msiK RNA: a 58-nucleotide sequence from Corynebacterium kalinowskii. Pairs were carried over by alignment from the consensus structure, which is taken from published work. The source organism's lineage runs through Bacteria, Actinomycetota, Actinomycetes, Mycobacteriales and Corynebacterium.
RNA sequence: GCUGUCCACCUCAUCACUCGGAUCGUUCGGCACGUACCUGCCGAUGAGAGGAAAAGUU
Numbered sequence: 001g002c003u004g005u006c007c008a009c010c011u012c013a014u015c016a017c018u019c020g021g022a023u024c025g026u027u028c029g030g031c032a033c034g035u036a037c038c039u040g041c042c043g044a045u046g047a048g049a050g051g052a053a054a055a056g057u058u
Stems, first nucleotide, its partner, number of pairs: 010050003014047003027044006